[Rfam]
RNA sequence: GUGCCGUAAUCUAAUGAGUAAGGAAAAUAAACGGGUCGGCGAAAGCUGCUCCUAAUACAAAGCCUUGGUUUUGUAUGAAAAUUUUAUUAUUUAGAGGGUAAAGGCCGCCCUAUGGCUGGACUCGUCUACUUUGCGAGAUCGGCCUGAUGAUGUGGUCUAGCCC
Number, nucleotide and partner (000 for none) at each position: 001g000002u000003g000004c023005c022006g000007u020008a019009a000010u000011c000012u000013a000014a000015u000016g000017a000018g000019u008020a007021a000022g005023g004024a000025a000026a000027a000028u000029a000030a000031a000032c000033g052034g051035g050036u000037c048038g047039g046040c000041g000042a000043a000044a000045g000046c039047u038048g037049c000050u035051c034052c033053u000054a000055a076056u075057a074058c073059a072060a071061a070062g000063c000064c000065u000066u000067g000068g000069u000070u061071u060072u059073g058074u057075a056076u055077g000078a000079a000080a000081a000082u000083u000084u000085u000086a000087u000088u000089a000090u000091u000092u000093a000094g000095a000096g163097g162098g161099u160100a000101a000102a158103g157104g156105c155106c154107g153108c152109c000110c000111u147112a000113u000114g144115g143116c142117u141118g140119g000120a000121c137122u136123c135124g134125u133126c000127u000128a000129c000130u000131u000132u000133g125134c124135g123136a122137g121138a000139u000140c118141g117142g116143c115144c114145u000146g000147a111148u000149g000150a000151u000152g108153u107154g106155g105156u104157c103158u102159a000160g099161c098162c097163c096

A member of the RNA family "U12 minor spliceosomal RNA" from Brachionus plicatilis, 163 nucleotides long.
The organism belongs to Brachionus, within Eukaryota.